About this RNA:
Rfam assigns this 113-nucleotide RNA sequence from Rossellomorea marisflavi to the family "PyrR binding site". A search with the family's covariance model found it, with a score of 62 bits. From the family's description: This family represents the PyrR binding site and terminator structure. This RNA structure is found upstream of a variety of genes involved in pyrimidine biosynthesis and transport. The alignment also includes a portion of the antiterminator structure.
[Rfam]
RNA sequence: AACACCUUUUAACAAUGGUCCAGAGAGUCCAUAAGGGUGAUGCUGUAUAGGGACGAGUCUGUUCCUCUAUGGCUGAAUACACCCUGAGCAGAAGGCACAGGGUGUUUUUUUAU
Number, nucleotide and partner (000 for none) at each position: 001a000002a000003c039004a038005c037006c036007u035008u034009u033010u000011a000012a000013c000014a000015a032016u031017g030018g029019u000020c027021c000022a000023g000024a000025g000026a000027g020028u000029c018030c017031a016032u015033a009034a008035g007036g006037g005038u004039g003040a000041u000042g073043c072044u071045g070046u069047a068048u000049a066050g065051g064052g063053a062054c061055g060056a000057g000058u000059c000060u055061g054062u053063u052064c051065c050066u049067c000068u047069a046070u045071g044072g043073c042074u000075g000076a108077a107078u000079a105080c104081a103082c102083c101084c100085u099086g098087a000088g096089c095090a000091g000092a000093a000094g000095g089096c088097a000098c086099a085100g084101g083102g082103u081104g080105u079106u000107u077108u076109u000110u000111u000112a000113u000
Pairs were carried over by alignment from the consensus structure, which is taken from published work. The source organism's lineage runs through Bacteria, Bacillati, Bacillota, Caryophanales and Rossellomorea. It is annotated as a cis-regulatory element.